[Rfam]
RNA sequence: AAUCUGUGAUGUAAAGAUUCUGCCAAAUGAUCCAGCUGAUUAUACCCCUUCCGUUCCAUUUUCUUCUGAGGUU
Numbered sequence: 001a002a003u004c005u006g007u008g009a010u011g012u013a014a015a016g017a018u019u020c021u022g023c024c025a026a027a028u029g030a031u032c033c034a035g036c037u038g039a040u041u042a043u044a045c046c047c048c049u050u051c052c053g054u055u056c057c058a059u060u061u062u063c064u065u066c067u068g069a070g071g072u073u
Base pairs, nucleotide, nucleotide: 001073002072003071004070
A member of the RNA family "Small nucleolar RNA SNORD47" from Clupea harengus, 73 nucleotides long. The family's RNA type in Rfam is C/D-box small nucleolar RNA. A search with the family's covariance model found it, with a score of 68 bits. The family has 20 seed sequences and 755 matches in Rfam 15.1. NCBI's taxonomy places the organism under Eukaryota, Metazoa, Euteleostomi, Clupeoidei, Clupea.